[Rfam]
Description: A member of the RNA family "Bacillus sRNA ncr1575" from Fictibacillus aquaticus, 215 nucleotides long. Pairs were carried over by alignment from the consensus structure, which is taken from published work. A search with the family's covariance model found it, with a score of 67 bits.
RNA sequence: UGGUAACGAAAGGGUGAAAGUUGGGCCGAUGUGGAGCUAAUCUUAUUUUCUAACGCUGAUUUAAAUAAAAAUCAACGCCUGGAGAAUAGGAUUCGUCUGCCCAUUUUUGCCGAUAUCGUUUGUGAAAGUACAUAUCAUUAGGUAUGUCUACUUUGCAUACGUCUAUUUUGGCAUAAGCAGCUGUAGCCUCUCCGGGCAAUCGGGGAGGUUUUUUU
Numbered sequence: 001u002g003g004u005a006a007c008g009a010a011a012g013g014g015u016g017a018a019a020g021u022u023g024g025g026c027c028g029a030u031g032u033g034g035a036g037c038u039a040a041u042c043u044u045a046u047u048u049u050c051u052a053a054c055g056c057u058g059a060u061u062u063a064a065a066u067a068a069a070a071a072u073c074a075a076c077g078c079c080u081g082g083a084g085a086a087u088a089g090g091a092u093u094c095g096u097c098u099g100c101c102c103a104u105u106u107u108u109g110c111c112g113a114u115a116u117c118g119u120u121u122g123u124g125a126a127a128g129u130a131c132a133u134a135u136c137a138u139u140a141g142g143u144a145u146g147u148c149u150a151c152u153u154u155g156c157a158u159a160c161g162u163c164u165a166u167u168u169u170g171g172c173a174u175a176a177g178c179a180g181c182u183g184u185a186g187c188c189u190c191u192c193c194g195g196g197c198a199a200u201c202g203g204g205g206a207g208g209u210u211u212u213u214u215u
Base pairs, nucleotide, nucleotide: 016108017107018106022103023102024101025100028097029096030095039093040092041091042090043089044088045087046086047085048084049083050082054077055076057074058073059072060071061070062069117161118160119159125154126153127152128151129150130149185210186209187208188207189206190205191204192203193202194201195200